The family of this 113-nucleotide RNA is "DUF3800-I RNA". Rfam's curators write: Actinobacteria, Firmicutes, Fusobacteria, Proteobacteria (1 example), Tenericutes (2 examples).

RNA sequence: UAAGUGUGCAGGUAGGAAUAUGCUGCGUACACGUAGAAUCAAAUUAGCGUUUAAGCGACUUGUAAAGUCGUUGACUAUGUGGAGUCGCCCUUAUGGGCGAUUUUUUAAUUUAG
Number, nucleotide and partner (000 for none) at each position: 001u000002a000003a000004g000005u000006g000007u027008g026009c025010a024011g023012g021013u020014a019015g000016g000017a000018a000019u014020a013021u012022g000023c011024u010025g009026c008027g007028u000029a000030c081031a080032c079033g078034u077035a076036g000037a000038a000039u074040c073041a072042a051043a050044u049045u000046a000047g000048c000049g044050u043051u042052u000053a000054a000055g071056c070057g069058a068059c067060u066061u000062g000063u000064a000065a000066a060067g059068u058069c057070g056071u055072u041073g040074a039075c000076u035077a034078u033079g032080u031081g030082g103083a102084g101085u100086c099087g098088c097089c096090c095091u000092u000093a000094u000095g090096g089097g088098c087099g086100a085101u084102u083103u082104u000105u000106u000107a000108a000109u000110u000111u000112a000113g000